The record is a 37-nucleotide sequence from Roseiflexus sp. RS-1, which matches "CRISPR RNA direct repeat element" in Rfam. The family's consensus secondary structure was predicted with WAR. Rfam 15.1 lists 210 matches to the family in 7 species.
[Rfam]
RNA sequence: GAAGCGACCACUGCCCCGCAAUGAAGGGGAUUGAAAC
Numbered sequence: 001g002a003a004g005c006g007a008c009c010a011c012u013g014c015c016c017c018g019c020a021a022u023g024a025a026g027g028g029g030a031u032u033g034a035a036a037c
Stems, first nucleotide, its partner, number of pairs: 012033002014029004